[Rfam]
RNA sequence: CUCACAGAGUUUAUUGGCAUUCUGUCCACCUCCUUGAUUAAUUUUGUUACCCAACCAAAAAAAAAAAGUAGUAUUACAUCCCCUAUGGAGGUGGGCAUACUGCCAACUGAGUUCUGUUGG
Numbered sequence: 001c002u003c004a005c006a007g008a009g010u011u012u013a014u015u016g017g018c019a020u021u022c023u024g025u026c027c028a029c030c031u032c033c034u035u036g037a038u039u040a041a042u043u044u045u046g047u048u049a050c051c052c053a054a055c056c057a058a059a060a061a062a063a064a065a066a067a068g069u070a071g072u073a074u075u076a077c078a079u080c081c082c083c084u085a086u087g088g089a090g091g092u093g094g095g096c097a098u099a100c101u102g103c104c105a106a107c108u109g110a111g112u113u114c115u116g117u118u119g120g
Base pairs, nucleotide, nucleotide: 011110014106015105016104017103018102019101023097024096025095026094027093028092029091030090031089032088033087

The family of this 120-nucleotide sequence from Trema andersonii is "MIR394 microRNA precursor family". The match comes from Rfam's covariance-model search (91 bits). The organism belongs to Trema, within Eukaryota. The base pairs follow the family's consensus structure, which was predicted with WAR. Rfam links the family to the GO terms miRNA-mediated post-transcriptional gene silencing and RISC complex.